[Rfam]
A member of the RNA family "transfer-messenger RNA" from Paenibacillus phyllosphaerae, 365 nucleotides long. The literature on the family includes a 2002 paper in Nucleic Acids Res by Williams, "The tmRNA Website: invasion by an intron". The match comes from Rfam's covariance-model search (186 bits). Bacterial tmRNA, also known as 10Sa RNA or SsrA, is named for its dual tRNA and mRNA-like properties. Its role is to liberate the mRNA from a stalled ribosome. To accomplish this part of the tmRNA is used as a reading frame that ends in a translation stop signal. The source organism's lineage runs through Bacteria, Bacillati, Bacillota, Paenibacillaceae and Paenibacillus. Rfam classes the family as a non-coding RNA gene. Gene Ontology term of the family: RNA catabolic process.
RNA sequence: GGGGGCGUUUAUGGAUUCGACGGGGAUAGUACGAGCAUGGGUUGCGGGUAGUGGGGACGCGUCCACUUCAUCAACGCUAAAGCCUAUUAAACGGCAACCGUAAUACUUCCUACGCUGUAGCAGCCUAAGAAACUGCACGCGUGCUUCUACCUUGCAUCGCCCAUGUGCCAGGAUAGGGGCUCACAUUUAGUGGGAUACGCUGUCUAGUCUCCGCCUGGGGCUAGCUGAAGACGACAAUCAGGCUGACCUGUAGGAUAGCCGGUUACGGGGCGCUCCCACAGGUGACAUCAAAACUGUGACUACACCCGUAGAUGCCUAUGUGGCGUUGUCUUCGGACAGGGGUUCAAAUCCCCUCGCCUCCACCA
Number, nucleotide and partner (000 for none) at each position: 001g361002g360003g359004g358005g357006c356007g355008u000009u000010u000011a000012u000013g000014g000015a000016u000017u000018c000019g000020a000021c334022g333023g332024g331025g330026a329027u328028a327029g326030u325031a000032c000033g000034a000035g321036c320037a319038u318039g317040g316041g315042u314043u000044g000045c308046g307047g306048g305049u304050a067051g066052u065053g064054g063055g000056g000057a000058c000059g077060c076061g075062u074063c054064c053065a052066c051067u050068u000069c000070a000071u000072c000073a000074a062075c061076g060077c059078u000079a000080a000081a000082g000083c000084c000085u000086a000087u000088u000089a000090a000091a000092c000093g000094g000095c000096a000097a000098c000099c000100g000101u000102a000103a000104u000105a000106c000107u000108u000109c000110c000111u000112a000113c000114g000115c000116u000117g000118u000119a000120g136121c135122a134123g133124c000125c000126u000127a000128a000129g000130a000131a000132a000133c123134u122135g121136c120137a000138c000139g000140c000141g000142u000143g180144c179145u178146u177147c176148u175149a000150c172151c171152u170153u000154g168155c167156a166157u165158c000159g000160c194161c193162c192163a191164u190165g157166u156167g155168c154169c000170a152171g151172g150173a000174u000175a148176g147177g146178g145179g144180c143181u000182c000183a000184c000185a000186u000187u000188u000189a000190g164191u163192g162193g161194g160195a000196u000197a000198c000199g000200c227201u000202g225203u224204c000205u000206a000207g000208u219209c000210u000211c000212c000213g243214c242215c241216u240217g239218g000219g208220g000221c000222u000223a000224g203225c202226u000227g200228a000229a000230g000231a000232c000233g000234a000235c000236a000237a000238u000239c217240a216241g215242g214243c213244u000245g000246a283247c282248c281249u280250g279251u278252a000253g276254g275255a274256u000257a000258g271259c270260c269261g000262g300263u299264u298265a297266c000267g000268g000269g260270g259271c258272g000273c000274u255275c254276c253277c000278a251279c250280a249281g248282g247283u246284g000285a000286c000287a000288u000289c000290a000291a000292a000293a000294c000295u000296g000297u265298g264299a263300c262301u000302a000303c000304a049305c048306c047307c046308g045309u000310a000311g000312a000313u000314g042315c041316c040317u039318a038319u037320g036321u035322g000323g000324c000325g030326u029327u028328g027329u026330c025331u024332u023333c022334g021335g000336a000337c000338a354339g353340g352341g351342g350343u000344u000345c000346a000347a000348a000349u000350c342351c341352c340353c339354u338355c007356g006357c005358c004359u003360c002361c001362a000363c000364c000365a000